[Rfam]
RNA sequence: GGGGAUGUUUUGGAUUUGACUGAAAAUGCUAAUAUUGUAAGUUGCAGGCAGAGGGAAUCUCUUAAAACUUCUAAAAUAAAUGCAAAAAAUAAUAACUUUACAAGCUCAAACCUUGUAAUGGCUGCUUAAGUUAGCAGAGAGUUUCGUUGAAUUUGGCUUUGAGGUUCACUUAUACUCUUUUCGACAUCGAAGCUUGCUUAAAAAUGUUUUCAAGUUAAUUUUUAGGGACUUUUGUACUUGAGAGCAAUUUGGUGGUUUGCUAGUAUUUCCAAACCAUAUUGCUUAAGUAAAAUGCUAGAUAAGCUUGUAGAAGCUUAUAAUAUUGUUUUUAGGACGCGGGUUCAAUUCCCGCCAUCUCCAUUU
Numbered sequence: 001g002g003g004g005a006u007g008u009u010u011u012g013g014a015u016u017u018g019a020c021u022g023a024a025a026a027u028g029c030u031a032a033u034a035u036u037g038u039a040a041g042u043u044g045c046a047g048g049c050a051g052a053g054g055g056a057a058u059c060u061c062u063u064a065a066a067a068c069u070u071c072u073a074a075a076a077u078a079a080a081u082g083c084a085a086a087a088a089a090u091a092a093u094a095a096c097u098u099u100a101c102a103a104g105c106u107c108a109a110a111c112c113u114u115g116u117a118a119u120g121g122c123u124g125c126u127u128a129a130g131u132u133a134g135c136a137g138a139g140a141g142u143u144u145c146g147u148u149g150a151a152u153u154u155g156g157c158u159u160u161g162a163g164g165u166u167c168a169c170u171u172a173u174a175c176u177c178u179u180u181u182c183g184a185c186a187u188c189g190a191a192g193c194u195u196g197c198u199u200a201a202a203a204a205u206g207u208u209u210u211c212a213a214g215u216u217a218a219u220u221u222u223u224a225g226g227g228a229c230u231u232u233u234g235u236a237c238u239u240g241a242g243a244g245c246a247a248u249u250u251g252g253u254g255g256u257u258u259g260c261u262a263g264u265a266u267u268u269c270c271a272a273a274c275c276a277u278a279u280u281g282c283u284u285a286a287g288u289a290a291a292a293u294g295c296u297a298g299a300u301a302a303g304c305u306u307g308u309a310g311a312a313g314c315u316u317a318u319a320a321u322a323u324u325g326u327u328u329u330u331a332g333g334a335c336g337c338g339g340g341u342u343c344a345a346u347u348c349c350c351g352c353c354a355u356c357u358c359c360a361u362u363u
Stems, first nucleotide, its partner, number of pairs: 001359007020332008032323012045307005050063002053060002055071003136180005143172001146169001149166002152163001155194007195228001197226006209242006244282005257272003260298004266292003336352005
A member of the RNA family "transfer-messenger RNA" from Borreliella bavariensis, 363 nucleotides long. It is annotated as a non-coding RNA gene. About the family: Bacterial tmRNA, also known as 10Sa RNA or SsrA, is named for its dual tRNA and mRNA-like properties. The family is grouped with related families in Rfam's "tRNA clan".